[Rfam]
RNA: Z6 small nucleolar RNA
RNA sequence: UGCUGGUGGCAGCCCCCAGUGCUGACAUGUGCUUUGGCACAGGGCUCCCUGGAGCCAGGGGAGACGCUGCCACUGAAGCUCAAGUG
Number, nucleotide and partner (000 for none) at each position: 001u086002g085003c084004u083005g000006g000007u000008g000009g000010c000011a000012g000013c000014c000015c000016c000017c000018a000019g000020u000021g000022c000023u000024g000025a000026c000027a000028u000029g000030u000031g000032c000033u000034u000035u000036g000037g000038c000039a000040c000041a000042g000043g000044g000045c000046u000047c000048c000049c000050u000051g000052g000053a000054g000055c000056c000057a000058g000059g000060g000061g000062a000063g000064a000065c000066g000067c000068u000069g000070c000071c000072a000073c000074u000075g000076a000077a000078g000079c000080u000081c000082a000083a004084g003085u002086g001